[Rfam]
RNA sequence: AGGCAUCCGUAGGGGUGCCCCGCACCAUUCGCUUCGGUGCGCUGUGCCUGCCAGGGACCGGCCAAUAACGGGCUACUGGGGGCAUAGCAAGCCGAAUGUGCAGAGCGAAUGGUGCGGGGCUGAGAUCACACCCUUGGAACCUGAUCCGGGUCAUACCGGCGGAGGGAACGGAGCCGAGGCGCCA
Numbered sequence: 001a002g003g004c005a006u007c008c009g010u011a012g013g014g015g016u017g018c019c020c021c022g023c024a025c026c027a028u029u030c031g032c033u034u035c036g037g038u039g040c041g042c043u044g045u046g047c048c049u050g051c052c053a054g055g056g057a058c059c060g061g062c063c064a065a066u067a068a069c070g071g072g073c074u075a076c077u078g079g080g081g082g083c084a085u086a087g088c089a090a091g092c093c094g095a096a097u098g099u100g101c102a103g104a105g106c107g108a109a110u111g112g113u114g115c116g117g118g119g120c121u122g123a124g125a126u127c128a129c130a131c132c133c134u135u136g137g138a139a140c141c142u143g144a145u146c147c148g149g150g151u152c153a154u155a156c157c158g159g160c161g162g163a164g165g166g167a168a169c170g171g172a173g174c175c176g177a178g179g180c181g182c183c184a
Stems, first nucleotide, its partner, number of pairs: 006172005011134004016128001017120018140165003146159004
The family of this 184-nucleotide RNA from Thermoanaerobaculum aquaticum is "TPP riboswitch aptamer (THI element)". The source organism's lineage runs through Bacteria, Thermoanaerobaculia, Thermoanaerobaculales, Thermoanaerobaculaceae and Thermoanaerobaculum. It scores 62 bits against the family's covariance model.